RNA sequence: GCUGCUACUGAUCCGCUUCAAAGUUGAGUUCGGCGCGACGCCUCAUCCACGCCGCGUCGACCCAAGGACCCGCCCGGUUGUCCCCCCGGGCGGGUC
Numbered sequence: 001g002c003u004g005c006u007a008c009u010g011a012u013c014c015g016c017u018u019c020a021a022a023g024u025u026g027a028g029u030u031c032g033g034c035g036c037g038a039c040g041c042c043u044c045a046u047c048c049a050c051g052c053c054g055c056g057u058c059g060a061c062c063c064a065a066g067g068a069c070c071c072g073c074c075c076g077g078u079u080g081u082c083c084c085c086c087c088g089g090g091c092g093g094g095u096c
Stems, first nucleotide, its partner, number of pairs: 001012001024065003028061003032058005067096011
Dot-bracket structure: (..........)...........(((.(((.(((((.................)))))))).))).(((((((((((........)))))))))))